[Rfam]
RNA: NrrF RNA
Organism: Neisseria sp. oral taxon 014
RNA sequence: UCACUCGAAAGCCGUUCUGCUGCGAGUCAUUAAACAAACGAUUAUCCCUCUUCAUUCAUUUACCCUUCGGAGUGCGCAUAUACGAGAAAUACUGUUCCCUUUAUAUCAGAUACUCAAAACCGAAAAACACAAAACCCGCUGUUUCACACUGCGGGUUUUGUGUUU
Numbered sequence: 001u002c003a004c005u006c007g008a009a010a011g012c013c014g015u016u017c018u019g020c021u022g023c024g025a026g027u028c029a030u031u032a033a034a035c036a037a038a039c040g041a042u043u044a045u046c047c048c049u050c051u052u053c054a055u056u057c058a059u060u061u062a063c064c065c066u067u068c069g070g071a072g073u074g075c076g077c078a079u080a081u082a083c084g085a086g087a088a089a090u091a092c093u094g095u096u097c098c099c100u101u102u103a104u105a106u107c108a109g110a111u112a113c114u115c116a117a118a119a120c121c122g123a124a125a126a127a128c129a130c131a132a133a134a135c136c137c138g139c140u141g142u143u144u145c146a147c148a149c150u151g152c153g154g155g156u157u158u159u160g161u162g163u164u165u
Stems, first nucleotide, its partner, number of pairs: 007097003015088003018084002023076002025073001027070002125165015